[Rfam]
RNA sequence: AUCUUAGUGCAUGGGUAUUACGCAUAUCAGUGAGGAUUCGUCCGAGAUUGCGUUUUUGCUAGUUGAAAACUAUAACCAUGACCGCUCUCACUUUGCUUCGGCGGGGUGAGGAAUUUUUGGAACCAAACUUCUAUG
Numbered sequence: 001a002u003c004u005u006a007g008u009g010c011a012u013g014g015g016u017a018u019u020a021c022g023c024a025u026a027u028c029a030g031u032g033a034g035g036a037u038u039c040g041u042c043c044g045a046g047a048u049u050g051c052g053u054u055u056u057u058g059c060u061a062g063u064u065g066a067a068a069a070c071u072a073u074a075a076c077c078a079u080g081a082c083c084g085c086u087c088u089c090a091c092u093u094u095g096c097u098u099c100g101g102c103g104g105g106g107u108g109a110g111g112a113a114u115u116u117u118u119g120g121a122a123c124c125a126a127a128c129u130u131c132u133a134u135g
Stems, first nucleotide, its partner, number of pairs: 020053005026048003034043003086111011124135002127132001
The family of this 135-nucleotide RNA from Blumeria hordei is "U4 spliceosomal RNA". The family's consensus secondary structure is taken from published work. The literature on the family includes a 2018 paper in Science by Bai et al., "Structures of the fully assembled Saccharomyces cerevisiae spliceosome before activation". U4 small nuclear RNA (U4 snRNA) is a component of the major U2-dependent spliceosome. By type it is a spliceosomal small nuclear RNA.